RNA: c-di-AMP riboswitch aptamer (ydaO/yuaA leader)
Organism: Salinispora arenicola
RNA sequence: GCGGUACCACCGCCCAAUCGCCGCGGGGCGGGCCAGGGAACCAGGCACAUGGGGUGAAUCCGCAUCAGCGGAGACCACUUCCGGCCCGGACCUGUCAGCUAACCCGGUCGGCGGUCAACGGAAGGGAU
Numbered sequence: 001g002c003g004g005u006a007c008c009a010c011c012g013c014c015c016a017a018u019c020g021c022c023g024c025g026g027g028g029c030g031g032g033c034c035a036g037g038g039a040a041c042c043a044g045g046c047a048c049a050u051g052g053g054g055u056g057a058a059u060c061c062g063c064a065u066c067a068g069c070g071g072a073g074a075c076c077a078c079u080u081c082c083g084g085c086c087c088g089g090a091c092c093u094g095u096c097a098g099c100u101a102a103c104c105c106g107g108u109c110g111g112c113g114g115u116c117a118a119c120g121g122a123a124g125g126g127a128u
Stems, first nucleotide, its partner, number of pairs: 011113004018031003032108003036104002042051002052093003060071004073086001075084001